Rfam assigns this 127-nucleotide sequence from Cytophaga hutchinsonii to the family "Bacteroidete tryptophan peptide leader RNA". Rfam's curators put it in the seed alignment. By type it is a cis-regulatory leader. Pairs were carried over by alignment from the consensus structure, which is taken from published work.
[Rfam]
RNA sequence: UCCCCCAUAUCUUUGUAACCAUGAAAACAAUUACAGGAACUAAACAAUUGUGGUGGUGCGUGAACUAAUCAGUUCGUGAACAUGCUGCUGUGUCCUGUUUGAAAAUAUAUCAAAAAAGAGGCUUGCU
Numbered sequence: 001u002c003c004c005c006c007a008u009a010u011c012u013u014u015g016u017a018a019c020c021a022u023g024a025a026a027a028c029a030a031u032u033a034c035a036g037g038a039a040c041u042a043a044a045c046a047a048u049u050g051u052g053g054u055g056g057u058g059c060g061u062g063a064a065c066u067a068a069u070c071a072g073u074u075c076g077u078g079a080a081c082a083u084g085c086u087g088c089u090g091u092g093u094c095c096u097g098u099u100u101g102a103a104a105a106u107a108u109a110u111c112a113a114a115a116a117a118g119a120g121g122c123u124u125g126c127u
Stems, first nucleotide, its partner, number of pairs: 036095003044091003050085003056081002059078004064073003